[Rfam]
RNA sequence: UUUGGUAGUGUAAACAUCCUACACUCUCGGCGUCUGCCACCUUGUGGCCGGGAGUGGGACUGUUUGCGCCAUCUGG
Number, nucleotide and partner (000 for none) at each position: 001u000002u075003u000004g073005g072006u071007a000008g069009u068010g067011u066012a065013a064014a063015c062016a061017u059018c058019c057020u056021a000022c000023a055024c054025u053026c052027u051028c050029g049030g048031c047032g000033u000034c000035u000036g000037c000038c000039a000040c000041c000042u000043u000044g000045u000046g000047g031048c030049c029050g028051g027052g026053a025054g024055u023056g020057g019058g018059a017060c000061u016062g015063u014064u013065u012066g011067c010068g009069c008070c000071a006072u005073c004074u000075g002076g000
This 76-nucleotide RNA sequence from Channa argus belongs to the Rfam family "mir-30 microRNA precursor family". Its family is annotated with RISC complex and gene silencing by miRNA in the Gene Ontology. The match comes from Rfam's covariance-model search (52 bits). The family's consensus secondary structure was predicted with PFOLD. Rfam describes the family as follows. This family consists of the mammalian microRNA (miRNA) precursor mir-30a. Animal miRNAs are transcribed as ~70nt precursors and subsequently processed by the Dicer enzyme to give a ~22nt product. The literature on the family includes a 2001 paper in Cell by Ambros, "microRNAs: tiny regulators with great potential".